[Rfam]
RNA sequence: UGUUCCGGUGGCGCACGACACCUAAAGACAUAACCACCGGUACAACGACCUCACCCAACCUCCCCCCUCCCCCUCUCACCCGGUCGGGUGAAUCACCCCAACCCCGCUGGCAAAUAGGCCAAUUCCCGGUGCACGAUUCCCUCACAACCCCAGAAACGCGAACGGCCCUCGACCGGGACUGCCAUCCCGAACCGAGGGCCUGACCACAGUGGAAGCAGGACCUUCCCC
Numbered sequence: 001u002g003u004u005c006c007g008g009u010g011g012c013g014c015a016c017g018a019c020a021c022c023u024a025a026a027g028a029c030a031u032a033a034c035c036a037c038c039g040g041u042a043c044a045a046c047g048a049c050c051u052c053a054c055c056c057a058a059c060c061u062c063c064c065c066c067c068u069c070c071c072c073c074u075c076u077c078a079c080c081c082g083g084u085c086g087g088g089u090g091a092a093u094c095a096c097c098c099c100a101a102c103c104c105c106g107c108u109g110g111c112a113a114a115u116a117g118g119c120c121a122a123u124u125c126c127c128g129g130u131g132c133a134c135g136a137u138u139c140c141c142u143c144a145c146a147a148c149c150c151c152a153g154a155a156a157c158g159c160g161a162a163c164g165g166c167c168c169u170c171g172a173c174c175g176g177g178a179c180u181g182c183c184a185u186c187c188c189g190a191a192c193c194g195a196g197g198g199c200c201u202g203a204c205c206a207c208a209g210u211g212g213a214a215g216c217a218g219g220a221c222c223u224u225c226c227c228c
Stems, first nucleotide, its partner, number of pairs: 008207003017071001076091006106130005164200005170194002175188004211226005
Rfam assigns this 228-nucleotide RNA from Streptomyces globosus to the family "Streptomyces sRNA 4677".
From the family's description: Located in the intergenic region between anti-sigma factor SCO4677 gene and a putative regulatory protein gene SCO4676. scr4677 expression requires the SCO4677 activity and scr4677 sRNA itself seem to affect the levels of the SCO4676-associated transcripts.
The organism belongs to Streptomyces, within Bacteria.
The match comes from Rfam's covariance-model search (79 bits).
The family's RNA type in Rfam is small RNA.
The base pairs follow the family's consensus structure.